RNA sequence: GAGUCUAACAUGUAUGCGAGUCAUUGGGAAUUAUUAAACCCAAAGGCAUAAUGAAAGUAAAGAUCCAAUUUUAUGGAUAUGAGGAGAGAUCAUGGCUUUAAGUCUUGAUAUUCCGUAAGGUUUAUUGAGUAAAGUAUGCGCAUCUCCUGGAUGUCUUAACCUCUGAAGGUAGGGCAUACCUAGAGCAUACACGUUGGGACCCGAAAGAUGGUGAACUAUGCCUGGUCAGAACGAAGUCAGGGGAAACCCUGAUGGAGGUUCGUAGCGAUUCUGACGUGCAAAUCGAUCGUCGGAACUGGGUAUAGGGGCGAAAGACUAAUCGAACCAUCUAGUAGCUGGUU
Dot-bracket structure: ....(((((.(((((((..(((..((((..........))))..)))...((....))........................(((((...((((........................................))))....))))).((((((((..............))).))).))....))))))).)))))..((.(...((((((...((((((((((((.((((...(((((((....)))))))....))))...((((.((.((........))))))))..).))))))))))).((.......))......))))))......).))..
Numbered sequence: 001g002a003g004u005c006u007a008a009c010a011u012g013u014a015u016g017c018g019a020g021u022c023a024u025u026g027g028g029a030a031u032u033a034u035u036a037a038a039c040c041c042a043a044a045g046g047c048a049u050a051a052u053g054a055a056a057g058u059a060a061a062g063a064u065c066c067a068a069u070u071u072u073a074u075g076g077a078u079a080u081g082a083g084g085a086g087a088g089a090u091c092a093u094g095g096c097u098u099u100a101a102g103u104c105u106u107g108a109u110a111u112u113c114c115g116u117a118a119g120g121u122u123u124a125u126u127g128a129g130u131a132a133a134g135u136a137u138g139c140g141c142a143u144c145u146c147c148u149g150g151a152u153g154u155c156u157u158a159a160c161c162u163c164u165g166a167a168g169g170u171a172g173g174g175c176a177u178a179c180c181u182a183g184a185g186c187a188u189a190c191a192c193g194u195u196g197g198g199a200c201c202c203g204a205a206a207g208a209u210g211g212u213g214a215a216c217u218a219u220g221c222c223u224g225g226u227c228a229g230a231a232c233g234a235a236g237u238c239a240g241g242g243g244a245a246a247c248c249c250u251g252a253u254g255g256a257g258g259u260u261c262g263u264a265g266c267g268a269u270u271c272u273g274a275c276g277u278g279c280a281a282a283u284c285g286a287u288c289g290u291c292g293g294a295a296c297u298g299g300g301u302a303u304a305g306g307g308g309c310g311a312a313a314g315a316c317u318a319a320u321c322g323a324a325c326c327a328u329c330u331a332g333u334a335g336c337u338g339g340u341u
Stems, first nucleotide, its partner, number of pairs: 005197005011191007020047003025042004051058002083147005091138004149180002151177003154173003200339002203336001207329006216305011227293001229261004236253007265290004270286002273284002307317002
Description:
A member of the RNA family "Eukaryotic large subunit ribosomal RNA" from Bilobella aurantiaca, 341 nucleotides of a longer RNA. Rfam's curators put it in the seed alignment. On this family, see Yusupov et al., Science 2001: "Crystal structure of the ribosome at 5.5 A resolution". Lineage of the source: Eukaryota > Mandibulata > Pancrustacea > Collembola > Bilobella.